RNA sequence: UGGCGGGGGAGCACUACAACCGGAGGAGCCUGCGGUUUAAUUGGACUCAACGCCGGACAUCUCACCAGCCCCGACAGUAGUAAUGACGGUCAGGUUGAUGACCUUACCCGAGGCUACUGAGAGGAGGUGCAUGGCCGCCGUCAGCUCGUACCGUGAGGCGUCCUGUUAAGUCAGGCAACGAGCGAGACCCGCACUCCUAAUUGCCAGCAGUACCCUUUGGGUAGCUGGGUACAUUAGGUGGACUGCCGCUGCCAAAGCGGAGGAAGGAACGGGCAACGGUAGGUCAGUAUGCCCCGAAUGGGCUGGGCAACACGCGGGCUACAAUGGUCGAGACAAUGGGAAGCCACUCCGAGAGGAGGCGCUAAUCUCCUAAACUCGAUCGUAGUUCGGAUUGAGGGCUGAAACUCGCCCUCAUGAAGCUGGAUUCGGUAGUAAUCGCGUGUCAGCAGCGCGCGGUGAAUACGUCCCUGCUCCUUGCACACACCGCCCGUCAAAUCACCCGAGUGGGGUUCGGAUGAGGCCGGCAUGCGCUGGUCAAAUCUGGGCUCCGCAAGGGGGAUUAAGUCGUAACAAGGUAGCCGUAGGGGAAUCUGCGGCUGG
Numbered sequence: 001u002g003g004c005g006g007g008g009g010a011g012c013a014c015u016a017c018a019a020c021c022g023g024a025g026g027a028g029c030c031u032g033c034g035g036u037u038u039a040a041u042u043g044g045a046c047u048c049a050a051c052g053c054c055g056g057a058c059a060u061c062u063c064a065c066c067a068g069c070c071c072c073g074a075c076a077g078u079a080g081u082a083a084u085g086a087c088g089g090u091c092a093g094g095u096u097g098a099u100g101a102c103c104u105u106a107c108c109c110g111a112g113g114c115u116a117c118u119g120a121g122a123g124g125a126g127g128u129g130c131a132u133g134g135c136c137g138c139c140g141u142c143a144g145c146u147c148g149u150a151c152c153g154u155g156a157g158g159c160g161u162c163c164u165g166u167u168a169a170g171u172c173a174g175g176c177a178a179c180g181a182g183c184g185a186g187a188c189c190c191g192c193a194c195u196c197c198u199a200a201u202u203g204c205c206a207g208c209a210g211u212a213c214c215c216u217u218u219g220g221g222u223a224g225c226u227g228g229g230u231a232c233a234u235u236a237g238g239u240g241g242a243c244u245g246c247c248g249c250u251g252c253c254a255a256a257g258c259g260g261a262g263g264a265a266g267g268a269a270c271g272g273g274c275a276a277c278g279g280u281a282g283g284u285c286a287g288u289a290u291g292c293c294c295c296g297a298a299u300g301g302g303c304u305g306g307g308c309a310a311c312a313c314g315c316g317g318g319c320u321a322c323a324a325u326g327g328u329c330g331a332g333a334c335a336a337u338g339g340g341a342a343g344c345c346a347c348u349c350c351g352a353g354a355g356g357a358g359g360c361g362c363u364a365a366u367c368u369c370c371u372a373a374a375c376u377c378g379a380u381c382g383u384a385g386u387u388c389g390g391a392u393u394g395a396g397g398g399c400u401g402a403a404a405c406u407c408g409c410c411c412u413c414a415u416g417a418a419g420c421u422g423g424a425u426u427c428g429g430u431a432g433u434a435a436u437c438g439c440g441u442g443u444c445a446g447c448a449g450c451g452c453g454c455g456g457u458g459a460a461u462a463c464g465u466c467c468c469u470g471c472u473c474c475u476u477g478c479a480c481a482c483a484c485c486g487c488c489c490g491u492c493a494a495a496u497c498a499c500c501c502g503a504g505u506g507g508g509g510u511u512c513g514g515a516u517g518a519g520g521c522c523g524g525c526a527u528g529c530g531c532u533g534g535u536c537a538a539a540u541c542u543g544g545g546c547u548c549c550g551c552a553a554g555g556g557g558g559a560u561u562a563a564g565u566c567g568u569a570a571c572a573a574g575g576u577a578g579c580c581g582u583a584g585g586g587g588a589a590u591c592u593g594c595g596g597c598u599g600g
Base pairs, nucleotide, nucleotide: 001481002480003478004477005476007475008474009473010472011471012470013469016465017464020429021428022427023426024425025322027320028319029318030317031316032315033314034313035311036310041056042055043054044053065306066305067304068303069302070301071300075119076118077117078116080114081113088108089107090106092104093103094102123295124294126293127292128291129290132289133288134284135283136282137280138279139278140277144183145182146181147180148179149178151158152157162175163174164173165172189272190271191270194240196238197237198236199235200234204229205228208227209226210225211223212222213221214220243263244262246260247259248258249257250256326381327380328379329378330377331376332375338369339368340367343362344361347358348357349356350355388419393414394413395412396411397410398409399408435457436456437455438454439453440452441451442450484574486571489567490566492564494561495560496559497558499556500555501554504551505550506549507548508547509546510545511544512543513542514541515540516539519536520535521534522533523532524531525530576599577598578597579596580595581594582593583592584591585590

The record is a 600-nucleotide part of an RNA from Halobacterium salinarum, which matches "Archaeal small subunit ribosomal RNA" in Rfam. The family's consensus secondary structure is taken from published work. For this family Rfam cites "Crystal structure of the ribosome at 5.5 A resolution" (Yusupov et al., Science, 2001).